[Rfam]
RNA sequence: CGUUAGUUAGUCAACUCCCUCACAACGGGCCAGCUGAACAUUUCUGUUUCUUCCUGGUCGUAUUGAGGGAGAGAAAAAUGGUUUCC
Numbered sequence: 001c002g003u004u005a006g007u008u009a010g011u012c013a014a015c016u017c018c019c020u021c022a023c024a025a026c027g028g029g030c031c032a033g034c035u036g037a038a039c040a041u042u043u044c045u046g047u048u049u050c051u052u053c054c055u056g057g058u059c060g061u062a063u064u065g066a067g068g069g070a071g072a073g074a075a076a077a078a079u080g081g082u083u084u085c086c
Base pairs, nucleotide, nucleotide: 015071016070017069018068019067020066021065022064025061026060028059029058030057031056032055033054036050037049038048